Shown here is a 71-nucleotide RNA from Anabaena sp. 90, a member of the family "Cyano-1 RNA". Rfam 15.1 lists 283 matches to the family in 194 species. The organism belongs to Anabaena, within Bacteria. Rfam classes the family as a small RNA.
RNA sequence: AGGUGUGUGAGGAGCGAAAUUAGGAAAGACACCGAGACGAAACACGGCCAGUCGUCGGUGUCUUUUCUUGU
Dot-bracket structure: .......................(((((..((((((((............))).)))))..))))).....